[Rfam]
RNA: mir-9193 microRNA precursor family
Organism: Pipistrellus kuhlii
RNA sequence: GGGGGGGGGGGGGGGAUUUCCCUCAACCCAGAUUGUAAGAGGGUACAGGCUAGGUUGAGGGACUCCACUGGUGCACG
Numbered sequence: 001g002g003g004g005g006g007g008g009g010g011g012g013g014g015g016a017u018u019u020c021c022c023u024c025a026a027c028c029c030a031g032a033u034u035g036u037a038a039g040a041g042g043g044u045a046c047a048g049g050c051u052a053g054g055u056u057g058a059g060g061g062a063c064u065c066c067a068c069u070g071g072u073g074c075a076c077g
Base pairs, nucleotide, nucleotide: 001074003072006069007068009066010065011064012063019062020061021060022059023058024057025056026055027054028053030051031050033048034047035046036045037044